This 173-nucleotide RNA sequence from Trinickia soli belongs to the Rfam family "Burkholderia RNA 14". The family has 3 seed sequences and 98 matches in Rfam 15.1. The organism belongs to Trinickia, within Bacteria. The literature on the family includes a 2013 paper in Genomics by Ramos et al., "Experimental identification of small non-coding regulatory RNAs in the opportunistic human pathogen Burkholderia cenocepacia J2315". Co-purified with Hfq, expression confirmed by Northern blot. Putative functional homologue of PA-SraF. Overlaps coding sequence. The match comes from Rfam's covariance-model search (122 bits). Pairs were carried over by alignment from the consensus structure, which was predicted with RNAfold.

RNA sequence: GUGGGCGUCGUGACCGUGCAGCCGAGUGCCGUGCCGGUCGUCACCGAACUGCCGGGCCGUACCAGCGCGUUCCUCGUCGCCCAGGUGCGCGCACGCGUGGACGGCAUCGUGCAGCGCCGCGAGUUCACCGAAGGCAGUGAAGUGAAGGCGGGCCAGCGGCUCUACAAGAUCGA
Numbered sequence: 001g002u003g004g005g006c007g008u009c010g011u012g013a014c015c016g017u018g019c020a021g022c023c024g025a026g027u028g029c030c031g032u033g034c035c036g037g038u039c040g041u042c043a044c045c046g047a048a049c050u051g052c053c054g055g056g057c058c059g060u061a062c063c064a065g066c067g068c069g070u071u072c073c074u075c076g077u078c079g080c081c082c083a084g085g086u087g088c089g090c091g092c093a094c095g096c097g098u099g100g101a102c103g104g105c106a107u108c109g110u111g112c113a114g115c116g117c118c119g120c121g122a123g124u125u126c127a128c129c130g131a132a133g134g135c136a137g138u139g140a141a142g143u144g145a146a147g148g149c150g151g152g153c154c155a156g157c158g159g160c161u162c163u164a165c166a167a168g169a170u171c172g173a
Stems, first nucleotide, its partner, number of pairs: 004053004008047003011043004016038001019036001021034002023031002056149003059143002063139001067135002072133001074131002079092002082089001094121002097118001100115001102114001104112003157172002160168002